Description: Shown here is a 35-nucleotide sequence from Myotis myotis, a member of the family "Iron response element I". For this family Rfam cites "Repression of Manduca sexta ferritin synthesis by IRP1/IRE interaction" (Zhang et al., Insect Mol Biol, 2001). It is annotated as a cis-regulatory element. The base pairs follow the family's consensus structure, which is taken from published work. Rfam links the family to the GO term response to iron ion. It scores 36 bits against the family's covariance model.
RNA sequence: CGGUCUCUUGCUUCAACGGUGUUUGGAUGAAACGG
Numbered sequence: 001c002g003g004u005c006u007c008u009u010g011c012u013u014c015a016a017c018g019g020u021g022u023u024u025g026g027a028u029g030a031a032a033c034g035g
Stems, first nucleotide, its partner, number of pairs: 001035001003033002006031001008029001010028001012027005017021001